[Rfam]
RNA sequence: UUAGAUGGGUGCUGUCUCAUCCGGUCAGAGUGACCAACUCCAGCCCGGGAAAUAAAAAAACCGACCUCACCAGUCGGUUUUUUUAU
Numbered sequence: 001u002u003a004g005a006u007g008g009g010u011g012c013u014g015u016c017u018c019a020u021c022c023g024g025u026c027a028g029a030g031u032g033a034c035c036a037a038c039u040c041c042a043g044c045c046c047g048g049g050a051a052a053u054a055a056a057a058a059a060a061c062c063g064a065c066c067u068c069a070c071c072a073g074u075c076g077g078u079u080u081u082u083u084u085a086u
Stems, first nucleotide, its partner, number of pairs: 020049005026043001028040003054083006061077005
RNA: ArsR-gov region gene B